[Rfam]
Description
RAGATH-30 RNA: a 58-nucleotide sequence.
RNA sequence: GUAAAAAUAAGAUUUUGCCGAAUAUAUUCAUAUAGAUGAAUCUGUUAUGAAACAGAAA
Numbered sequence: 001g002u003a004a005a006a007a008u009a010a011g012a013u014u015u016u017g018c019c020g021a022a023u024a025u026a027u028u029c030a031u032a033u034a035g036a037u038g039a040a041u042c043u044g045u046u047a048u049g050a051a052a053c054a055g056a057a058a
Stems, first nucleotide, its partner, number of pairs: 027040005041056006

The sequence is in the family's curated seed alignment. Pairs were carried over by alignment from the consensus structure, which is taken from published work.